[Rfam]
RNA sequence: ACGUAGCUGAUAUGUCUGGUUCAUAUCAUUGCCUGCUACCUUGGCAUUAAAAAUUUUGGAAACAAAAAAGGUAUAAACACAGCCUUUGUGGUAUGAGGUGGUUUUUAGUACGUAGGCGUUGCAGAGCUAAUUCUCUCUUUUGGUCUGAGAUCUGCAACGAAUCGUGCAUGCGAAACAAUCGAACUCGUAUCUAUGAAGAUUUCCAUCCUCGCGUC
Numbered sequence: 001a002c003g004u005a006g007c008u009g010a011u012a013u014g015u016c017u018g019g020u021u022c023a024u025a026u027c028a029u030u031g032c033c034u035g036c037u038a039c040c041u042u043g044g045c046a047u048u049a050a051a052a053a054u055u056u057u058g059g060a061a062a063c064a065a066a067a068a069a070g071g072u073a074u075a076a077a078c079a080c081a082g083c084c085u086u087u088g089u090g091g092u093a094u095g096a097g098g099u100g101g102u103u104u105u106u107a108g109u110a111c112g113u114a115g116g117c118g119u120u121g122c123a124g125a126g127c128u129a130a131u132u133c134u135c136u137c138u139u140u141u142g143g144u145c146u147g148a149g150a151u152c153u154g155c156a157a158c159g160a161a162u163c164g165u166g167c168a169u170g171c172g173a174a175a176c177a178a179u180c181g182a183a184c185u186c187g188u189a190u191c192u193a194u195g196a197a198g199a200u201u202u203c204c205a206u207c208c209u210c211g212c213g214u215c
Stems, first nucleotide, its partner, number of pairs: 037073006079214002082212002095210004099205003108167005117159009127149001169189005